Shown here is an 85-nucleotide sequence, a member of the family "c-di-GMP-II-GAG riboswitch aptamer".

[Rfam]
RNA sequence: CGGCAGGCGGGAGGCUUUGACGUGCGGUCCGCGCUCCGGCCGCCGGGACCGCGCCGAGCCACUGGCGAGACCGACCCGCUCGCGC
Numbered sequence: 001c002g003g004c005a006g007g008c009g010g011g012a013g014g015c016u017u018u019g020a021c022g023u024g025c026g027g028u029c030c031g032c033g034c035u036c037c038g039g040c041c042g043c044c045g046g047g048a049c050c051g052c053g054c055c056g057a058g059c060c061a062c063u064g065g066c067g068a069g070a071c072c073g074a075c076c077c078g079c080u081c082g083c084g085c
Stems, first nucleotide, its partner, number of pairs: 003083002006080006013060003022054008038072002041067004
Annotation:
The family is grouped with related families in Rfam's "c-di-GMP_II riboswitch clan". For this family Rfam cites "Bioinformatic analysis of riboswitch structures uncovers variant classes with altered ligand specificity" (Weinberg et al., Proc Natl Acad Sci U S A, 2017). The base pairs follow the family's consensus structure, which is taken from published work.